This 166-nucleotide RNA from Cuculus canorus belongs to the Rfam family "Small Cajal body specific RNA 1". On this family, see Darzacq et al., EMBO J 2002: "Cajal body-specific small nuclear RNAs: a novel class of 2'-O-methylation and pseudouridylation guide RNAs". The source organism's lineage runs through Eukaryota, Eumetazoa, Chordata, Dipnotetrapodomorpha and Cuculus. It scores 121 bits against the family's covariance model.

RNA sequence: GAGCACUUGAUACUAACCGAGCCAUCCGUGCCUCGGGCCCUGCGCAGAGGUCCGGGGUGCACCUUGUGAUUGCUGGGUCUGAAAAGUGCGACAGUAACACAAGCCAUGAGAUGUAUAAGCUCAGUGUAUGAAGGAAAACACUGGGUUAUAACUCAGAGGCACAGAA
Numbered sequence: 001g002a003g004c005a006c007u008u009g010a011u012a013c014u015a016a017c018c019g020a021g022c023c024a025u026c027c028g029u030g031c032c033u034c035g036g037g038c039c040c041u042g043c044g045c046a047g048a049g050g051u052c053c054g055g056g057g058u059g060c061a062c063c064u065u066g067u068g069a070u071u072g073c074u075g076g077g078u079c080u081g082a083a084a085a086g087u088g089c090g091a092c093a094g095u096a097a098c099a100c101a102a103g104c105c106a107u108g109a110g111a112u113g114u115a116u117a118a119g120c121u122c123a124g125u126g127u128a129u130g131a132a133g134g135a136a137a138a139c140a141c142u143g144g145g146u147u148a149u150a151a152c153u154c155a156g157a158g159g160c161a162c163a164g165a166a
Stems, first nucleotide, its partner, number of pairs: 003089006016078003020074003024070003028062004032057001034055001036053002039050003103160003124139002127136001129134001141156006